[Rfam]
RNA: MIR5565 microRNA precursor family
RNA sequence: GUGCAUGUAUCUACUUCAAUCCACAUGUGUUGGAGUGGAUUGACAUGAAACUUAGUUUAAUUCCACCCCAAUCCACUUCAAUACAUGUGGAUUGAGACAAAUACAUGC
Numbered sequence: 001g002u003g004c005a006u007g008u009a010u011c012u013a014c015u016u017c018a019a020u021c022c023a024c025a026u027g028u029g030u031u032g033g034a035g036u037g038g039a040u041u042g043a044c045a046u047g048a049a050a051c052u053u054a055g056u057u058u059a060a061u062u063c064c065a066c067c068c069c070a071a072u073c074c075a076c077u078u079c080a081a082u083a084c085a086u087g088u089g090g091a092u093u094g095a096g097a098c099a100a101a102u103a104c105a106u107g108c
Base pairs, nucleotide, nucleotide: 004107005106006105007104008103009102010101012099016095017094018093019092020091021090022089023088024087025086026085027084028083029082030081031080032079035076036075037074038073039072040071041070042069046065047064